A member of the RNA family "ZMP/ZTP riboswitch aptamer (pfl RNA motif)" from Cryptosporangium phraense, 82 nucleotides long. A search with the family's covariance model found it, with a score of 43 bits.
[Rfam]
RNA sequence: GGCGGACGGAGCGACUGGCGGCACGGGGAUGGGAAACCAUCGGGGAGCCUCGUCGCGGGAGUCGACCGCCUGGGCCCCGCGC
Numbered sequence: 001g002g003c004g005g006a007c008g009g010a011g012c013g014a015c016u017g018g019c020g021g022c023a024c025g026g027g028g029a030u031g032g033g034a035a036a037c038c039a040u041c042g043g044g045g046a047g048c049c050u051c052g053u054c055g056c057g058g059g060a061g062u063c064g065a066c067c068g069c070c071u072g073g074g075c076c077c078c079g080c081g082c
Stems, first nucleotide, its partner, number of pairs: 005054005011048002015044002017070005029040004059077001061075003